[Rfam]
RNA sequence: GUUGAUACAACACGAAUCCUUCGUAUAUCCUCAGGAAUAGGGCCUGAGAGUCUCUACCGGGUUGCCGAUAACGACCUGACUAUGAAGGCAGAAUUUCUGGGG
Numbered sequence: 001g002u003u004g005a006u007a008c009a010a011c012a013c014g015a016a017u018c019c020u021u022c023g024u025a026u027a028u029c030c031u032c033a034g035g036a037a038u039a040g041g042g043c044c045u046g047a048g049a050g051u052c053u054c055u056a057c058c059g060g061g062u063u064g065c066c067g068a069u070a071a072c073g074a075c076c077u078g079a080c081u082a083u084g085a086a087g088g089c090a091g092a093a094u095u096u097c098u099g100g101g102g
Stems, first nucleotide, its partner, number of pairs: 018088008030048006058078007
Description:
A member of the RNA family "Purine riboswitch aptamer" from Alteribacter lacisalsi, 102 nucleotides long. The family's consensus secondary structure is taken from published work. A search with the family's covariance model found it, with a score of 80 bits.